[Rfam]
RNA sequence: GGCGUAAAGCGUAUGUAGGCUGUUAUGAAAGUUAGCGGUGAAAGCCCAGAGCUCAACUCUGGAACCGCCGCUAAAACUUCAUAACUAGAGUUGUUUAUAGAGGUAGUCGGAAUUCCUGGUGUAGGAGUGAAAUCUGUAGAUAUCAGGAGGAACACCAAAGGCGAAGGCAAGCUACUGGGUAAUGACUGACGCUGAGAUACGAAAGCCAGGGGAGCAAAUGGGAUUAGAGACCCCAGUAGUCCUGGCCGUAAACGAUGUACACUAGUUAUAUGAGAUAGGAGUACGCUCCUUUUUAUGUAACGUAGCUAACGCGUUAAGUGUACCGCCUGGGUAGUAUGCACGCAAGUGUGAAACUCAAAGAAAU
Numbered sequence: 001g002g003c004g005u006a007a008a009g010c011g012u013a014u015g016u017a018g019g020c021u022g023u024u025a026u027g028a029a030a031g032u033u034a035g036c037g038g039u040g041a042a043a044g045c046c047c048a049g050a051g052c053u054c055a056a057c058u059c060u061g062g063a064a065c066c067g068c069c070g071c072u073a074a075a076a077c078u079u080c081a082u083a084a085c086u087a088g089a090g091u092u093g094u095u096u097a098u099a100g101a102g103g104u105a106g107u108c109g110g111a112a113u114u115c116c117u118g119g120u121g122u123a124g125g126a127g128u129g130a131a132a133u134c135u136g137u138a139g140a141u142a143u144c145a146g147g148a149g150g151a152a153c154a155c156c157a158a159a160g161g162c163g164a165a166g167g168c169a170a171g172c173u174a175c176u177g178g179g180u181a182a183u184g185a186c187u188g189a190c191g192c193u194g195a196g197a198u199a200c201g202a203a204a205g206c207c208a209g210g211g212g213a214g215c216a217a218a219u220g221g222g223a224u225u226a227g228a229g230a231c232c233c234c235a236g237u238a239g240u241c242c243u244g245g246c247c248g249u250a251a252a253c254g255a256u257g258u259a260c261a262c263u264a265g266u267u268a269u270a271u272g273a274g275a276u277a278g279g280a281g282u283a284c285g286c287u288c289c290u291u292u293u294u295a296u297g298u299a300a301c302g303u304a305g306c307u308a309a310c311g312c313g314u315u316a317a318g319u320g321u322a323c324c325g326c327c328u329g330g331g332u333a334g335u336a337u338g339c340a341c342g343c344a345a346g347u348g349u350g351a352a353a354c355u356c357a358a359a360g361a362a363a364u
Base pairs, nucleotide, nucleotide: 001327002326003325009324011200012199013198014197016194018193019192020191022085023084024083025082026081027080028079030078031077032074033073034072035071036070037069038068039067040066046062047061048060049059050058051057089187090186091185095182096181097180098179102176103175104174105173106172107171109153113149114148115147116146117145118144119143120142124135125134126133161168162167205246206245207244208243209242210241214240215239219235220234221233222232257323258322259321260320261319262318265301266300267299268298269297270296271295272294273293274292275291305312306311329356330355331354338349339348340347341346
RNA: Bacterial small subunit ribosomal RNA, nucleotides 544 to 907